Plastid-rps18 3UTR RNA: a 57-nucleotide sequence from Durio zibethinus. By type it is a cis-regulatory element. The match comes from Rfam's covariance-model search (67 bits). Pairs were carried over by alignment from the consensus structure, which was predicted with LocARNA. The source organism's lineage runs through Eukaryota, Streptophytina, Tracheophyta, Malvales and Durio. About the family: Plastid rps18 is a non-coding RNA (ncRNA) present in plastids.
[Rfam]
RNA sequence: UGCAAGUAUUUUACGAUUAAAAAGCAACAGAUUCUUGUACAAAUUUUUUAUUAAUCU
Numbered sequence: 001u002g003c004a005a006g007u008a009u010u011u012u013a014c015g016a017u018u019a020a021a022a023a024g025c026a027a028c029a030g031a032u033u034c035u036u037g038u039a040c041a042a043a044u045u046u047u048u049u050a051u052u053a054a055u056c057u
Stems, first nucleotide, its partner, number of pairs: 018037003022033002025030001